[Rfam]
RNA sequence: AGUUUUACUAAAGCGCCUGGACUGUUUUCGAACGGAAGAAAACAGUUGACGAGGAAGAGGUUCAUCGAACAUCGGCGGAUACCUCUCGAUUGCUACACCACAAUCGAACGGUUUUGUGAAAAACAGAGAGGUGACUUUCUGAACAAAAGCAAAACCAUGGUGAUAA
Numbered sequence: 001a002g003u004u005u006u007a008c009u010a011a012a013g014c015g016c017c018u019g020g021a022c023u024g025u026u027u028u029c030g031a032a033c034g035g036a037a038g039a040a041a042a043c044a045g046u047u048g049a050c051g052a053g054g055a056a057g058a059g060g061u062u063c064a065u066c067g068a069a070c071a072u073c074g075g076c077g078g079a080u081a082c083c084u085c086u087c088g089a090u091u092g093c094u095a096c097a098c099c100a101c102a103a104u105c106g107a108a109c110g111g112u113u114u115u116g117u118g119a120a121a122a123a124c125a126g127a128g129a130g131g132u133g134a135c136u137u138u139c140u141g142a143a144c145a146a147a148a149g150c151a152a153a154a155c156c157a158u159g160g161u162g163a164u165a166a
Base pairs, nucleotide, nucleotide: 020047021046022045023044024043025042026041027040029038056086057085058084059083060082065075066074067073068072087106088105089104090103091102092101110156111155112154113153114152115151116150124141125140126139127138128137129136130135
About this RNA: Rfam assigns this 166-nucleotide sequence from Guptibacillus hwajinpoensis to the family "glmS glucosamine-6-phosphate activated ribozyme aptamer". About the family: This entry contains a glucosamine-6-phosphate activated ribozyme that is found in the mRNA for GlmS. GlmS is an enzyme that uses fructose-6-phosphate and glutamine to generate glucosamine-6-phosphate. A search with the family's covariance model found it, with a score of 122 bits. By type it is a riboswitch. The family's consensus secondary structure is taken from published work.